[Rfam]
RNA sequence: UUUUUAUUGGAUGACGACUGUCACAUAUUAUGUUAUGAUUGGUCAAUGAAAACAACAAUGCAUUUCAUCUUUCAUGGAGUUGGCAUUCAAUCAGAACAUGACACGUGGCACUCGUCAUCC
Numbered sequence: 001u002u003u004u005u006a007u008u009g010g011a012u013g014a015c016g017a018c019u020g021u022c023a024c025a026u027a028u029u030a031u032g033u034u035a036u037g038a039u040u041g042g043u044c045a046a047u048g049a050a051a052a053c054a055a056c057a058a059u060g061c062a063u064u065u066c067a068u069c070u071u072u073c074a075u076g077g078a079g080u081u082g083g084c085a086u087u088c089a090a091u092c093a094g095a096a097c098a099u100g101a102c103a104c105g106u107g108g109c110a111c112u113c114g115u116c117a118u119c120c
Stems, first nucleotide, its partner, number of pairs: 020109004026103001029100003033096002036093001038091005

Rfam assigns this 120-nucleotide RNA from Glycine max to the family "MIR1520 microRNA precursor family".
Its family is annotated with RISC complex and miRNA-mediated post-transcriptional gene silencing in the Gene Ontology.
Rfam 15.1 lists 1,934 matches to the family in 15 species.
It scores 100 bits against the family's covariance model.